The family of this 125-nucleotide RNA from Aegilops tauschii is "Plastid-psbA-1 3UTR RNA".
On this family, see Richter et al., Plant Commun 2023: "Retrograde signaling in plants: A critical review focusing on the GUN pathway and beyond".

RNA sequence: UUGAGUCUCUAAAUCUCGUCGUUAACUGAAUUCUGAAUAGAAAGAUUAAGAAGAAAAAAAGAUUCAAAAUAAAGACAGAAAUACCCAAUAUCUUGUUCUAGCAAGAUCUUGGGUAUUUCUGUCUU
Numbered sequence: 001u002u003g004a005g006u007c008u009c010u011a012a013a014u015c016u017c018g019u020c021g022u023u024a025a026c027u028g029a030a031u032u033c034u035g036a037a038u039a040g041a042a043a044g045a046u047u048a049a050g051a052a053g054a055a056a057a058a059a060a061g062a063u064u065c066a067a068a069a070u071a072a073a074g075a076c077a078g079a080a081a082u083a084c085c086c087a088a089u090a091u092c093u094u095g096u097u098c099u100a101g102c103a104a105g106a107u108c109u110u111g112g113g114u115a116u117u118u119c120u121g122u123c124u125u
Base pairs, nucleotide, nucleotide: 008041009040010039011038072125073124074123075122076121077120078119079118080117081116082115083114084113086111087110088109090107091106092105093104094103
Clan: Plastid-psbA 3UTR RNA clan. Taxonomically the source falls in Aegilops tauschii (Eukaryota, Euphyllophyta, Magnoliopsida, Triticodae).